A member of the RNA family "glmS glucosamine-6-phosphate activated ribozyme aptamer" from Peptostreptococcus russellii, 148 nucleotides long. The source organism's lineage runs through Bacteria, Bacillati, Bacillota, Peptostreptococcales and Peptostreptococcus. About the family: This entry contains a glucosamine-6-phosphate activated ribozyme that is found in the mRNA for GlmS. GlmS is an enzyme that uses fructose-6-phosphate and glutamine to generate glucosamine-6-phosphate. It is annotated as a riboswitch. The family's consensus secondary structure is taken from published work.

[Rfam]
RNA sequence: AGUUUAACUCUAGCGCCAGGACUAGUUAAUAGUUGACGAGGACGAAGUUUAUCGAAUUUUCGGCGGAUACUUCGCGGGAUACCUGUUUCCGAAAAGUCUCUACAAAACUUGGAAGAAAUUCCAUCGACAAAAGAGGCCUAACAGGUGA
Dot-bracket structure: ...................(((((.....)))))........(((((....((((....))))......)))))(((((.......)))))....((((((........(((((....)))))........))))))...........